[Rfam]
RNA sequence: AUGCCCUACGGAUGCUCAGGUCCGCCGCAUCUCCUGGGACUUCGUAGGUCGGCCAGCUUGGGGACGGAGCGUUGCCUCCACAACACCGUCCCCAACUGGCCAUUUU
Numbered sequence: 001a002u003g004c005c006c007u008a009c010g011g012a013u014g015c016u017c018a019g020g021u022c023c024g025c026c027g028c029a030u031c032u033c034c035u036g037g038g039a040c041u042u043c044g045u046a047g048g049u050c051g052g053c054c055a056g057c058u059u060g061g062g063g064a065c066g067g068a069g070c071g072u073u074g075c076c077u078c079c080a081c082a083a084c085a086c087c088g089u090c091c092c093c094a095a096c097u098g099g100c101c102a103u104u105u106u
Base pairs, nucleotide, nucleotide: 003050005048006047007046008045009044010043015038016037017036018035019034020033051101052100053099054098055097056096058094060092061091
Annotation: A member of the RNA family "EcpR1" from Microvirga alba, 106 nucleotides long. Rfam classes the family as a small RNA. Perviously named SmelC291, SmrC10, or Sra33. A search with the family's covariance model found it, with a score of 62 bits. For this family Rfam cites "Deep sequencing uncovers numerous small RNAs on all four replicons of the plant pathogen Agrobacterium tumefaciens" (Wilms et al., RNA Biol, 2012).